[Rfam]
RNA sequence: CCAAUAGAUCGCUAGGGUUCCGACACCAUCAACGUAUCACCCCUGAUGGCUGUGGCUGGUCCGAGAGCAAUCGACCUAACGCUUAGGCGGUAGGUUACACGGCGGGACAAAAGCCCGGGAGGA
Number, nucleotide and partner (000 for none) at each position: 001c000002c000003a000004a000005u000006a000007g072008a071009u070010c000011g068012c067013u000014a000015g062016g061017g000018u000019u000020c059021c058022g056023a053024c052025a051026c000027c000028a000029u000030c000031a000032a000033c000034g000035u000036a000037u000038c000039a000040c000041c000042c000043c000044u000045g000046a000047u000048g000049g000050c000051u025052g024053u023054g000055g000056c022057u000058g021059g020060u000061c016062c015063g000064a000065g000066a000067g012068c011069a000070a009071u008072c007073g096074a095075c094076c093077u092078a091079a000080c089081g000082c000083u000084u000085a000086g000087g000088c000089g080090g000091u078092a077093g076094g075095u074096u073097a000098c118099a000100c121101g000102g000103c000104g116105g115106g114107a000108c000109a000110a000111a000112a000113g000114c106115c105116c104117g000118g098119g000120a000121g100122g000123a000
Shown here is a 123-nucleotide RNA sequence from Halovibrio variabilis, a member of the family "Guanidine-I riboswitch aptamer". NCBI's taxonomy places the organism under Bacteria, Pseudomonadati, Gammaproteobacteria, Oceanospirillales, Halovibrio. Rfam's curators write: This family represents a conserved RNA structure found upstream of the ykkC and yxkD genes in Bacillus subtilis and related genes in other bacteria. The function of this family is unclear although it has been suggested that it may function to switch on efflux pumps and detoxification systems in response to harmful environmental molecules. For this family Rfam cites "Structural Basis for Ligand Binding to the Guanidine-I Riboswitch" (Reiss et al., Structure, 2017). Rfam 15.1 lists 1,509 matches to the family in 1,281 species. Gene Ontology term of the family: regulation of gene expression. The pairing is the family consensus, mapped onto this sequence.